[Rfam]
Nucleotides: 084
Stems, first nucleotide, its partner, number of pairs: 001084022024061001026059003030055011
Number, partner (000 for none) and nucleotide at each position: 001084u002083a003082u004081u005080a006079g007078g008077u009076u010075g011074g012073u013072g014071c015070a016069a017068g018067a019066g020065u021064a022063a023000u024061u025000a026059u027058g028057g029000u030055u031054u032053u033052u034051g035050c036049c037048a038047u039046u040045a041000a042000a043000a044000g045040u046039g047038a048037u049036g050035g051034c052033a053032a054031a055030a056000c057028c058027c059026a060000c061024a062000u063022u064021u065020a066019c067018u068017c069016u070015u071014g072013c073012a074011c075010c076009a077008a078007c079006c080005u081004a082003g083002u084001a
This 84-nucleotide RNA sequence from Gorilla gorilla belongs to the Rfam family "mir-548 microRNA precursor family". Lineage of the source: Eukaryota > Deuterostomia > Haplorrhini > Hominoidea > Gorilla gorilla. The literature on the family includes a 2010 paper in BMC Biol by Witten et al., "Ultra-high throughput sequencing-based small RNA discovery and discrete statistical biomarker analysis in a collection of cervical tumours and matched controls". Gene Ontology terms of the family: miRNA-mediated post-transcriptional gene silencing and RISC complex.